[Rfam]
The record is a 121-nucleotide RNA from Scleromatobacter humisilvae, which matches "TPP riboswitch aptamer (THI element)" in Rfam.
A search with the family's covariance model found it, with a score of 58 bits.
RNA sequence: GCGACCGCUCCGGGGUGCAUCCGCCAAGAGAUGCUGAGACGACCGAUGGAUGGGUAAUCUAGGUCGAACCCGAGAACUUGAACCGGCUAGUACCGGCGUAAGGAGAGCUGCAGACGACAAC
Numbered sequence: 001g002c003g004a005c006c007g008c009u010c011c012g013g014g015g016u017g018c019a020u021c022c023g024c025c026a027a028g029a030g031a032u033g034c035u036g037a038g039a040c041g042a043c044c045g046a047u048g049g050a051u052g053g054g055u056a057a058u059c060u061a062g063g064u065c066g067a068a069c070c071c072g073a074g075a076a077c078u079u080g081a082a083c084c085g086g087c088u089a090g091u092a093c094c095g096g097c098g099u100a101a102g103g104a105g106a107g108c109u110g111c112a113g114a115c116g117a118c119a120a121c
Stems, first nucleotide, its partner, number of pairs: 007108004011072004016066001017034005041065004077102004083096004